Description:
Rfam assigns this 73-nucleotide RNA sequence from Mus spicilegus to the family "Small nucleolar RNA SNORD103/SNORD85". By type it is a C/D-box small nucleolar RNA. A search with the family's covariance model found it, with a score of 77 bits.

RNA sequence: ACUGGCAGGGAUGAUACAUACUUGCCCUCACUUAGACCAGAGGUCGAUGAUGAGGGCUUUGUUCUGAGCCAGU
Numbered sequence: 001a002c003u004g005g006c007a008g009g010g011a012u013g014a015u016a017c018a019u020a021c022u023u024g025c026c027c028u029c030a031c032u033u034a035g036a037c038c039a040g041a042g043g044u045c046g047a048u049g050a051u052g053a054g055g056g057c058u059u060u061g062u063u064c065u066g067a068g069c070c071a072g073u
Base pairs, nucleotide, nucleotide: 001073002072003071004070005069006068